Record summary
mir-3492 microRNA precursor family: a 79-nucleotide sequence from Schistosoma margrebowiei. The organism belongs to Schistosoma, within Eukaryota. Rfam 15.1 lists 21,496 matches to the family in 13 species. A search with the family's covariance model found it, with a score of 49 bits.
RNA sequence: GACGUCUAUGAAUCCGUGCCGAGACCUCAUCAGAUACCAGGGCAUCAGGACUGGUGAGACUCCCAAGAUAAGUGAGGUG
Dot-bracket structure: .((.((..(..(((..((..(((..((((((.....................)))))).))).)).)))..).)).)).